[Rfam]
RNA: Small nucleolar RNA SNORD58
Organism: Xenopus laevis
RNA sequence: UGGCAAUGAUGACUAUCUUAGGACACCUUUGGAAUCAAACAUGAAACCAACCUUUAUUCUGAGCCAC
Number, nucleotide and partner (000 for none) at each position: 001u066002g065003g064004c063005a000006a000007u000008g000009a000010u000011g000012a000013c000014u000015a000016u000017c000018u000019u000020a000021g000022g000023a000024c000025a000026c000027c000028u000029u000030u000031g000032g000033a000034a000035u000036c000037a000038a000039a000040c000041a000042u000043g000044a000045a000046a000047c000048c000049a000050a000051c000052c000053u000054u000055u000056a000057u000058u000059c000060u000061g000062a000063g004064c003065c002066a001067c000